[Rfam]
RNA sequence: UGUUGUUCUGACUGUUUCAAAAGCUUAUAUUGUUCGUUCAAAGUUACUUAUAAGCUCGUGAUCAACAGGCAGGACAACUA
Numbered sequence: 001u002g003u004u005g006u007u008c009u010g011a012c013u014g015u016u017u018c019a020a021a022a023g024c025u026u027a028u029a030u031u032g033u034u035c036g037u038u039c040a041a042a043g044u045u046a047c048u049u050a051u052a053a054g055c056u057c058g059u060g061a062u063c064a065a066c067a068g069g070c071a072g073g074a075c076a077a078c079u080a
Stems, first nucleotide, its partner, number of pairs: 002078009012068005017061003022056008032047002
Source information
mir-231 microRNA precursor family: an 80-nucleotide RNA from Caenorhabditis brenneri. Pairs were carried over by alignment from the consensus structure, which was predicted with RNAalifold. The match comes from Rfam's covariance-model search (100 bits).